RNA sequence: CCUCUUUGGGGAGUAGCCUGCUUCUGGAUUCCAGAAGAGCCCGUGUCAACAUUCUCGGCGUUUUGCCGUGGCACGAGCGCCUUCCGGUUGGCGAGACCAUCGACAUUCCCGUGCCAGGGUCGGGCGCGCGGGGCUGUCGUGGAUCAGCGCCCGGCCGGU
Numbered sequence: 001c002c003u004c005u006u007u008g009g010g011g012a013g014u015a016g017c018c019u020g021c022u023u024c025u026g027g028a029u030u031c032c033a034g035a036a037g038a039g040c041c042c043g044u045g046u047c048a049a050c051a052u053u054c055u056c057g058g059c060g061u062u063u064u065g066c067c068g069u070g071g072c073a074c075g076a077g078c079g080c081c082u083u084c085c086g087g088u089u090g091g092c093g094a095g096a097c098c099a100u101c102g103a104c105a106u107u108c109c110c111g112u113g114c115c116a117g118g119g120u121c122g123g124g125c126g127c128g129c130g131g132g133g134c135u136g137u138c139g140u141g142g143a144u145c146a147g148c149g150c151c152c153g154g155c156c157g158g159u
Stems, first nucleotide, its partner, number of pairs: 021037003039078002042075007056068005079159003084154002